[Rfam]
RNA sequence: UUCUGUGUAUGAUACAAUUAAUUUAACUUAAUAGUCUUUUUUUAUUUAAAUUUGAACCACUGUGGUAGUGUUGAACUCGAACAUUGAUUGAAAUUUUUUGAAAUAUGGCAUUAAGAAAUAAAAUAUCUCAGGAGGUACUUGACUAUGACUACAGGUACAGUAAAAUGGUUUAACUCAGAAAAAGGUUUCGGAUUCAUCACUGUUGAAGGUGGAAACGAUGUAUUCGCUCACUUCUCAGCUAUCCAAGGUGAAGGAUUCAAAACUUUAGAAGAAGGUCAAAAAGUUUCUUUCGAAAUCGUUGAAGGUGACCGUGGACCUCAAGCAGCUAACAUCGUUAAAUUAUAAUUUUUAACUCAUUAGCUUAAAGGCUGUGAAUAGAGAAUCUAUUCACAGCCUUU
Numbered sequence: 001u002u003c004u005g006u007g008u009a010u011g012a013u014a015c016a017a018u019u020a021a022u023u024u025a026a027c028u029u030a031a032u033a034g035u036c037u038u039u040u041u042u043u044a045u046u047u048a049a050a051u052u053u054g055a056a057c058c059a060c061u062g063u064g065g066u067a068g069u070g071u072u073g074a075a076c077u078c079g080a081a082c083a084u085u086g087a088u089u090g091a092a093a094u095u096u097u098u099u100g101a102a103a104u105a106u107g108g109c110a111u112u113a114a115g116a117a118a119u120a121a122a123a124u125a126u127c128u129c130a131g132g133a134g135g136u137a138c139u140u141g142a143c144u145a146u147g148a149c150u151a152c153a154g155g156u157a158c159a160g161u162a163a164a165a166u167g168g169u170u171u172a173a174c175u176c177a178g179a180a181a182a183a184g185g186u187u188u189c190g191g192a193u194u195c196a197u198c199a200c201u202g203u204u205g206a207a208g209g210u211g212g213a214a215a216c217g218a219u220g221u222a223u224u225c226g227c228u229c230a231c232u233u234c235u236c237a238g239c240u241a242u243c244c245a246a247g248g249u250g251a252a253g254g255a256u257u258c259a260a261a262a263c264u265u266u267a268g269a270a271g272a273a274g275g276u277c278a279a280a281a282a283g284u285u286u287c288u289u290u291c292g293a294a295a296u297c298g299u300u301g302a303a304g305g306u307g308a309c310c311g312u313g314g315a316c317c318u319c320a321a322g323c324a325g326c327u328a329a330c331a332u333c334g335u336u337a338a339a340u341u342a343u344a345a346u347u348u349u350u351a352a353c354u355c356a357u358u359a360g361c362u363u364a365a366a367g368g369c370u371g372u373g374a375a376u377a378g379a380g381a382a383u384c385u386a387u388u389c390a391c392a393g394c395c396u397u398u
Stems, first nucleotide, its partner, number of pairs: 002012002020201001022199001031194001034193004038185003045180003050175001052173007061147006076134003082131001084102002087099001110119003149155002204292006217225002230284004235280001238277001239275002242269002245266003250263001322343001324341002327337004346366003351362001353360002367395012
Dot-bracket structure: .((.......)).......(.(........(..(((((((....(((..(.(((((((..((((((.........(((...(.((.(...........).)).......(((....)))...........)))).......)))))).((...))...........))))))).)..)))..)))....)))))....).)..((((((.......((.....))....((((.(..(((.((.(((..(............)))).))....)).)..)))))..)))))).............................(.((.((((...))))..)).)..(((..(.((....)).).)))((((((((((((.....))))))))))))...